[Rfam]
RNA sequence: GGAUGGUCCAAAGAUAGUGAGUUAUCUCAACUGAUUGUUCACGUAAGUUACAGAUCAAACUCCUUGUUCUGCCCUUUCCUCUCUUCUCACUACUGCCCUUGACUAGUCCAAA
Numbered sequence: 001g002g003a004u005g006g007u008c009c010a011a012a013g014a015u016a017g018u019g020a021g022u023u024a025u026c027u028c029a030a031c032u033g034a035u036u037g038u039u040c041a042c043g044u045a046a047g048u049u050a051c052a053g054a055u056c057a058a059a060c061u062c063c064u065u066g067u068u069c070u071g072c073c074c075u076u077u078c079c080u081c082u083c084u085u086c087u088c089a090c091u092a093c094u095g096c097c098c099u100u101g102a103c104u105a106g107u108c109c110a111a112a
Stems, first nucleotide, its partner, number of pairs: 001108002004105005010100002015095001016091006043073001046070002
Dot-bracket structure: ((.(((((.((...(((((((.....................(..((.....................))..)............))))))...)...))))))).))....
About this RNA:
Rfam assigns this 112-nucleotide sequence from Macaca mulatta to the family "Y RNA". Rfam 15.1 lists 26,986 matches to the family in 650 species. By type it is a non-coding RNA gene. Pairs were carried over by alignment from the consensus structure, which is taken from published work. Y RNAs are components of the Ro ribonucleoprotein particle (Ro RNP), in association with Ro60 and La proteins. The Y RNAs and Ro60 and La proteins are well conserved, but the function of the Ro RNP is not known. For this family Rfam cites "Conserved features of Y RNAs: a comparison of experimentally derived secondary structures" (Teunissen et al., Nucleic Acids Res, 2000).